Shown here is a 103-nucleotide RNA from Halosegnis rubeus, a member of the family "L4-Archaeoglobi ribosomal protein leades". The match comes from Rfam's covariance-model search (68 bits). The family's RNA type in Rfam is cis-regulatory leader.
RNA sequence: CUGACGACCGCGUUCGGGUCAAUUGCGGCAUGCAACACCCGGUCUCGCUGCCCGUGCCGCCGGCGAUGGCGACACCACGGGAGGGAGAACGCGUCACAGUCAG
Numbered sequence: 001c002u003g004a005c006g007a008c009c010g011c012g013u014u015c016g017g018g019u020c021a022a023u024u025g026c027g028g029c030a031u032g033c034a035a036c037a038c039c040c041g042g043u044c045u046c047g048c049u050g051c052c053c054g055u056g057c058c059g060c061c062g063g064c065g066a067u068g069g070c071g072a073c074a075c076c077a078c079g080g081g082a083g084g085g086a087g088a089a090c091g092c093g094u095c096a097c098a099g100u101c102a103g
Stems, first nucleotide, its partner, number of pairs: 001103005009093005015041004023035005043088004048083002051080002